[Rfam]
RNA: Ruegeria cis52 sRNA
RNA sequence: UCCUGAGCGCGUGUUUCAGAACGAUAUUACCAAAACUCACACCCUUGAGCCGCGCCGUGCGGAUGUAUUGCGCGGUCAUCACCUCGGUCAUGCUCGCGCGGGUCAUCCGCGCGAUAUAGCCCAUCCCAUACAGCGAGAUCGUCAGCACCGGCAGAAAGAAAUUCUCGAACGUGGCGUUC
Numbered sequence: 001u002c003c004u005g006a007g008c009g010c011g012u013g014u015u016u017c018a019g020a021a022c023g024a025u026a027u028u029a030c031c032a033a034a035a036c037u038c039a040c041a042c043c044c045u046u047g048a049g050c051c052g053c054g055c056c057g058u059g060c061g062g063a064u065g066u067a068u069u070g071c072g073c074g075g076u077c078a079u080c081a082c083c084u085c086g087g088u089c090a091u092g093c094u095c096g097c098g099c100g101g102g103u104c105a106u107c108c109g110c111g112c113g114a115u116a117u118a119g120c121c122c123a124u125c126c127c128a129u130a131c132a133g134c135g136a137g138a139u140c141g142u143c144a145g146c147a148c149c150g151g152c153a154g155a156a157a158g159a160a161a162u163u164c165u166c167g168a169a170c171g172u173g174g175c176g177u178u179c
Stems, first nucleotide, its partner, number of pairs: 004141003008137001010135003015130001016128001019126001021124001028123001038113001040111001042109001046105003050101005055075008082096001145179001147177001149174001151172002154165001156163002